[Rfam]
A member of the RNA family "Alphacoronavirus 3'UTR" from Alphacoronavirus ricketti, 300 nucleotides long. The family's RNA type in Rfam is cis-regulatory element. The family is grouped with related families in Rfam's "Coronavirus 3' UTR". The organism belongs to Myotis ricketti alphacoronavirus Sax-2011, within Viruses. A reference for the family is Madhugiri et al. (2014), "RNA structure analysis of alphacoronavirus terminal genome regions", Virus Res. The 3' UTR of alphacoronaviruses consists of two small hairpins (PK-SL2) which can form an alternate conformation (PK-SL1) where the loop region of the second hairpin interacts with the stem of the first hairpin. PK-SL2 has been confirmed in HCoV-229E and HCoV-NL63 by in vitro structure probing experiments. Downstream of this pseudoknot lies the hypervariable region (HVR), which is supported by many covarying basepairs in alphacoronaviruses. Further, a conserved octanucleotide sequence is present in the HVR.
RNA sequence: UUUAUUCAUGAUAACAUCUUGCACUGGCUACUUAGUGAUAUGCGGCCCCUAGGCUUCCUCCUUUGGAUCCUAGUUAUUUUGGGCCUGGUCUUAUACACAACGGUAGUCCAGUGGUAAUUUCAGUAUAAGAAGGAAAUCACCAUAUUGCAGAUCCGAGGUGAACGCUAUGUUUUAACUAUCUAACACGGAGUUGGAGUGAUUUAAAGAUCGCUUUGACGAGCCAACAAUGGAAGAGCCAACACGUGAUUUAGCUACGCAUAGUUACUAACUUAAGACAGUUCUGCUUUGCUAUGGAUACAC
Number, nucleotide and partner (000 for none) at each position: 001u000002u000003u000004a000005u000006u000007c000008a000009u000010g000011a000012u000013a000014a000015c000016a000017u000018c000019u000020u000021g000022c000023a000024c000025u000026g000027g000028c000029u000030a000031c000032u000033u000034a000035g000036u000037g000038a000039u000040a000041u000042g000043c000044g000045g000046c000047c000048c000049c000050u000051a000052g000053g000054c000055u000056u000057c000058c000059u000060c000061c000062u000063u000064u000065g000066g000067a000068u000069c000070c000071u000072a000073g000074u000075u000076a000077u000078u000079u000080u000081g000082g000083g000084c000085c000086u000087g000088g000089u000090c000091u106092u105093a104094u103095a000096c000097a000098c000099a000100a000101c000102g000103g094104u093105a092106g091107u000108c000109c000110a000111g143112u142113g141114g140115u139116a000117a137118u136119u135120u134121c133122a000123g000124u000125a000126u000127a000128a000129g000130a000131a000132g000133g121134a120135a119136a118137u117138c000139a115140c114141c113142a112143u111144a000145u000146u000147g284148c283149a282150g281151a280152u000153c000154c000155g000156a000157g270158g269159u268160g000161a000162a000163c000164g262165c261166u260167a259168u258169g000170u000171u000172u000173u000174a000175a000176c251177u250178a249179u000180c000181u000182a000183a000184c245185a244186c243187g242188g000189a000190g240191u239192u238193g237194g236195a000196g000197u000198g000199a000200u000201u000202u000203a000204a000205a000206g000207a000208u000209c000210g000211c220212u219213u000214u000215g000216a000217c000218g000219a212220g211221c230222c229223a000224a000225c000226a000227a000228u000229g222230g221231a000232a000233g000234a000235g000236c194237c193238a192239a191240c190241a000242c187243g186244u185245g184246a000247u000248u000249u178250a177251g176252c000253u000254a000255c000256g000257c000258a168259u167260a166261g165262u164263u000264a000265c000266u000267a000268a159269c158270u157271u000272a000273a000274g000275a000276c000277a000278g000279u000280u151281c150282u149283g148284c147285u000286u000287u000288g000289c000290u000291a000292u000293g000294g000295a000296u000297a000298c000299a000300c000